[Rfam]
RNA sequence: UGAUAAGUACCAACUUCAUAAAGUAUAACCUCAAUAAUAUGGUUUGAGGGUCUCUACCAGGAAUCCGUAAAAUCCUGAUUACUUAAAAAGUGCAUGCCGCG
Dot-bracket structure: ..................(.(((((...((((((.........))))))........(((((..........)))))..))))).)...............
A member of the RNA family "Purine riboswitch aptamer" from Bacillus sp. FJAT-26390, 101 nucleotides long. It scores 67 bits against the family's covariance model. For this family Rfam cites "Adenine riboswitches and gene activation by disruption of a transcription terminator" (Mandal and Breaker, Nat Struct Mol Biol, 2004).